[Rfam]
A member of the RNA family "small nucleolar RNA snoR135" from Panicum miliaceum, 139 nucleotides long.
RNA sequence: CUUGCAGGAUAGUGUGUAUCGGCUUUGCGCUAUUUUGAUGCGUCUUUGCCGAAAGUGUUUCCUGCUAUAACAAUUUGAGGAAAGUGGGCAGUUGGGUUAAGCUUAUCUGCUUUCUCCAACAAUCAUUUUCCUCUCAUGU
Numbered sequence: 001c002u003u004g005c006a007g008g009a010u011a012g013u014g015u016g017u018a019u020c021g022g023c024u025u026u027g028c029g030c031u032a033u034u035u036u037g038a039u040g041c042g043u044c045u046u047u048g049c050c051g052a053a054a055g056u057g058u059u060u061c062c063u064g065c066u067a068u069a070a071c072a073a074u075u076u077g078a079g080g081a082a083a084g085u086g087g088g089c090a091g092u093u094g095g096g097u098u099a100a101g102c103u104u105a106u107c108u109g110c111u112u113u114c115u116c117c118a119a120c121a122a123u124c125a126u127u128u129u130c131c132u133c134u135c136a137u138g139u
Base pairs, nucleotide, nucleotide: 004065005064006063007062008061009059014043015042016041017040018039019038077133078132079131080130081129082128083127084126085125086124087123091120092119093118094117
Lineage of the source: Eukaryota > Tracheophyta > Euphyllophyta > Spermatophyta > Panicum sect. Panicum. A reference for the family is Chen and Wu (2009), "Mining small RNA sequencing data: a new approach to identify small nucleolar RNAs in Arabidopsis", Nucleic Acids Res. The family's RNA type in Rfam is H/ACA-box small nucleolar RNA.